A member of the RNA family "TPP riboswitch aptamer (THI element)" from Tepidibacillus sp. HK-1, 113 nucleotides long. Pairs were carried over by alignment from the consensus structure, which is taken from published work. The match comes from Rfam's covariance-model search (65 bits).
[Rfam]
RNA sequence: UUAAUAUGUUAUGGGAGCUUGUGAAAACAGGCUGAGAGGAUAGCUAUCAUUCGCUAUCGACCAAUAACCUGAUCUGGGUAAUGCCAGCGGAGGGAAAACAUAAGUUUAAAUUU
Numbered sequence: 001u002u003a004a005u006a007u008g009u010u011a012u013g014g015g016a017g018c019u020u021g022u023g024a025a026a027a028c029a030g031g032c033u034g035a036g037a038g039g040a041u042a043g044c045u046a047u048c049a050u051u052c053g054c055u056a057u058c059g060a061c062c063a064a065u066a067a068c069c070u071g072a073u074c075u076g077g078g079u080a081a082u083g084c085c086a087g088c089g090g091a092g093g094g095a096a097a098a099c100a101u102a103a104g105u106u107u108a109a110a111u112u113u
Base pairs, nucleotide, nucleotide: 006101007100008099009098010097012063013062014061017032018031019030020029021028039058040057041056042055043054068093069092070091074087075086076085077084